[Rfam]
RNA sequence: UUAUAAGCAAAAGUUAAUAUUUUAGAUUCAUUCAUUAAAUGAUGUAUGUGGUCUUUAUUAUAGACUACAUACAUCAUUUAACGAAUGAUUCUAAAAUGUUAAUUUUUCCUUAUAA
Numbered sequence: 001u002u003a004u005a006a007g008c009a010a011a012a013g014u015u016a017a018u019a020u021u022u023u024a025g026a027u028u029c030a031u032u033c034a035u036u037a038a039a040u041g042a043u044g045u046a047u048g049u050g051g052u053c054u055u056u057a058u059u060a061u062a063g064a065c066u067a068c069a070u071a072c073a074u075c076a077u078u079u080a081a082c083g084a085a086u087g088a089u090u091c092u093a094a095a096a097u098g099u100u101a102a103u104u105u106u107u108c109c110u111u112a113u114a115a
Base pairs, nucleotide, nucleotide: 002114003113004112005111006110007109009107010106011105012104013103015101016100017099018098019097020096021095022094023093024092025091028088029087030086031085032084033083035081036080037079038078039077040076041075042074043073044072049067050066051065052064
RNA: MIR2593 microRNA precursor family